The family of this 78-nucleotide sequence from Schistosoma haematobium is "mir-3492 microRNA precursor family". It scores 45 bits against the family's covariance model.
RNA sequence: AGCUUUUCAAAUCCAUGCUGAGAUUUCGUCAGACACCAACUCAUUAGAGCUUAUCAGACUUCCAAGGUAAGUGAAGUU
Numbered sequence: 001a002g003c004u005u006u007u008c009a010a011a012u013c014c015a016u017g018c019u020g021a022g023a024u025u026u027c028g029u030c031a032g033a034c035a036c037c038a039a040c041u042c043a044u045u046a047g048a049g050c051u052u053a054u055c056a057g058a059c060u061u062c063c064a065a066g067g068u069a070a071g072u073g074a075a076g077u078u
Stems, first nucleotide, its partner, number of pairs: 002077005008071001011068003016064002020061003024058003028054002